[Rfam]
RNA: Lysine riboswitch aptamer
Organism: Proteiniborus sp. DW1
RNA sequence: AUGUGAUUAAGAGGCCGCGAUUUGUUAAUAGUACUACAGUAAAAUAAACUGUAGGAAAGGAACAGUCGCCGAAAUACAGGAUACCUGUAUUGGGACUAUGCUGAAUAAGUAUAGUACUGUCAUUAGAAAAUUGCCCAAUUUUCUAAUGGAGCGCUUAACACAUU
Dot-bracket structure: ......(((((.....((((((.(((.......(((((((.......)))))))......)))))))))...((((((((...))))))))((.((((((((.....)))))))).)).(((((((((((........)))))))))))....)))))......